[Rfam]
RNA sequence: ACUGGAGGACUAACAAGACUGAGUCUGGAGAGUGAGGCUCAGGUGACAGUGGCCUCCUAAAGGAAAAGGGAUGGGAGAGCAGUCCUACUUCCAGAGGAGCACAGGGCUCACUGUGCCAUCUGACACUG
Numbered sequence: 001a002c003u004g005g006a007g008g009a010c011u012a013a014c015a016a017g018a019c020u021g022a023g024u025c026u027g028g029a030g031a032g033u034g035a036g037g038c039u040c041a042g043g044u045g046a047c048a049g050u051g052g053c054c055u056c057c058u059a060a061a062g063g064a065a066a067a068g069g070g071a072u073g074g075g076a077g078a079g080c081a082g083u084c085c086u087a088c089u090u091c092c093a094g095a096g097g098a099g100c101a102c103a104g105g106g107c108u109c110a111c112u113g114u115g116c117c118a119u120c121u122g123a124c125a126c127u128g
Base pairs, nucleotide, nucleotide: 003059004057005056006055007054008053017044019042021040022039023038024037025036026035067121068120069119078112079111081108082107083106084105085104086103090101092099
RNA: Small Cajal body specific RNA 4